[Rfam]
Nucleotides: 173
Base pairs, nucleotide, nucleotide: 001016002015003014004013005012006011028173029172030171031170032169037166042160043159044158045157046156047155048153049152050151051150052149064148065147066146067145068144069143075140076139077138081133082132083131084130085113086112087111088110091106092105093104094103
Number, partner (000 for none) and nucleotide at each position: 001016u002015u003014a004013a005012c006011a007000g008000u009000g010000a011006u012005g013004u014003u015002g016001a017000g018000g019000a020000u021000g022000g023000a024000g025000g026000a027000a028173g029172u030171g031170g032169a033000g034000u035000a036000g037166c038000g039000a040000u041000u042160c043159u044158u045157u046156c047155g048153a049152g050151c051150g052149u053000a054000c055000g056000a057000a058000c059000a060000g061000a062000a063000a064148c065147c066146u067145g068144a069143u070000a071000u072000a073000a074000g075140g076139c077138u078000a079000a080000a081133u082132g083131g084130u085113g086112g087111a088110u089000g090000a091106a092105g093104u094103u095000g096000c097000c098000u099000a100000a101000c102000a103094a104093a105092c106091u107000g108000a109000a110088g111087u112086c113085c114000a115000a116000a117000a118000g119000g120000u121000a122000a123000a124000c125000g126000u127000a128000a129000a130084a131083c132082c133081a134000a135000g136000a137000c138077a139076g140075u141000a142000a143069a144068u145067c146066a147065g148064g149052a150051c151050g152049u153048u154000g155047u156046g157045a158044a159043a160042g161000a162000a163000a164000u165000a166037g167000g168000a169032u170031u171030c172029g173028u